[Rfam]
About this RNA
The family of this 75-nucleotide sequence from Acrocarpospora pleiomorpha is "ASpks TB sRNA". A search with the family's covariance model found it, with a score of 74 bits.
RNA sequence: CUUCACCGAGCCGAGCCAGAGCGGGCGGUCCGGGUCACGCCCCUGGCCGUACGUGGCGAGCAGCGCGUGCGCCUC
Number, nucleotide and partner (000 for none) at each position: 001c000002u000003u000004c000005a000006c000007c000008g000009a000010g000011c000012c000013g000014a000015g000016c024017c023018a000019g000020a000021g000022c000023g017024g016025g000026c000027g000028g000029u000030c000031c071032g070033g000034g000035u000036c000037a000038c065039g064040c000041c000042c000043c060044u059045g000046g000047c056048c055049g054050u000051a000052c000053g000054u049055g048056g047057c000058g000059a044060g043061c000062a000063g000064c039065g038066c000067g000068u000069g000070c032071g031072c000073c000074u000075c000